[Rfam]
RNA sequence: CCGUGCAGCCGGGGAGUUAGCGGUGCCCUGAACCUGCAAUCCGCUAUAGCAGGGGUGAUAUUUUGCCUAGGAUUUGUUUUUGUAGGGCUGCCCUUUAUAAGUGGCGUUGACGUUUUGGUCUUGCGCAACAGGAAUUUGUGAACCGUGUCAGGUCGGGAACGGAGCAGCACUAAGCAAAAUCUCCUGUGUGCCGUAAGGUAGCUGGGACUGAGUUAACUGUAGAGGUAACGCCUAUGAGGCAAAUACAAAGCAAAAUGCACGG
Numbered sequence: 001c002c003g004u005g006c007a008g009c010c011g012g013g014g015a016g017u018u019a020g021c022g023g024u025g026c027c028c029u030g031a032a033c034c035u036g037c038a039a040u041c042c043g044c045u046a047u048a049g050c051a052g053g054g055g056u057g058a059u060a061u062u063u064u065g066c067c068u069a070g071g072a073u074u075u076g077u078u079u080u081u082g083u084a085g086g087g088c089u090g091c092c093c094u095u096u097a098u099a100a101g102u103g104g105c106g107u108u109g110a111c112g113u114u115u116u117g118g119u120c121u122u123g124c125g126c127a128a129c130a131g132g133a134a135u136u137u138g139u140g141a142a143c144c145g146u147g148u149c150a151g152g153u154c155g156g157g158a159a160c161g162g163a164g165c166a167g168c169a170c171u172a173a174g175c176a177a178a179a180u181c182u183c184c185u186g187u188g189u190g191c192c193g194u195a196a197g198g199u200a201g202c203u204g205g206g207a208c209u210g211a212g213u214u215a216a217c218u219g220u221a222g223a224g225g226u227a228a229c230g231c232c233u234a235u236g237a238g239g240c241a242a243a244u245a246c247a248a249a250g251c252a253a254a255a256u257g258c259a260c261g262g
Stems, first nucleotide, its partner, number of pairs: 001262006008056003011029004016024003033053005062254005068248001070246001072244004078239009089227002093224006101217002103214003112208008120197006126188002129186005135178005145170004153162003